This 127-nucleotide RNA from Orycteropus afer belongs to the Rfam family "Small nucleolar RNA ACA64". The organism belongs to Orycteropus afer, within Eukaryota. The family has 30 seed sequences and 9,537 matches in Rfam 15.1. On this family, see Schattner et al., RNA 2006: "A computational screen for mammalian pseudouridylation guide H/ACA RNAs". It scores 86 bits against the family's covariance model.

RNA sequence: AUUGGUUGAAAAUAGCCUGUGGCUUCACCAGUAGUCACAAGUGAGAUUCUGCACCCAGAGACGCCACGGGCUUCAACUCACUGCCCAUGCCUUGGUGUGGGUGGCUGAAACCCAGGCUCCUAUAGGU
Numbered sequence: 001a002u003u004g005g006u007u008g009a010a011a012a013u014a015g016c017c018u019g020u021g022g023c024u025u026c027a028c029c030a031g032u033a034g035u036c037a038c039a040a041g042u043g044a045g046a047u048u049c050u051g052c053a054c055c056c057a058g059a060g061a062c063g064c065c066a067c068g069g070g071c072u073u074c075a076a077c078u079c080a081c082u083g084c085c086c087a088u089g090c091c092u093u094g095g096u097g098u099g100g101g102u103g104g105c106u107g108a109a110a111c112c113c114a115g116g117c118u119c120c121u122a123u124a125g126g127u
Stems, first nucleotide, its partner, number of pairs: 005052002008049003013044001015042002021036004069118005078108003082104001086099003